[Rfam]
RNA sequence: CACUGACACGCCUGGAUCAUUGCUCAGCCUGUUUUUAUUUCUAGAUGAGCAAAGUUUCAGGUGUGUAUGUGG
Numbered sequence: 001c002a003c004u005g006a007c008a009c010g011c012c013u014g015g016a017u018c019a020u021u022g023c024u025c026a027g028c029c030u031g032u033u034u035u036u037a038u039u040u041c042u043a044g045a046u047g048a049g050c051a052a053a054g055u056u057u058c059a060g061g062u063g064u065g066u067a068u069g070u071g072g
Base pairs, nucleotide, nucleotide: 002070003069006066007065009063010062011061012060013059014058015057018054020052021051023049024048025047026046029044030043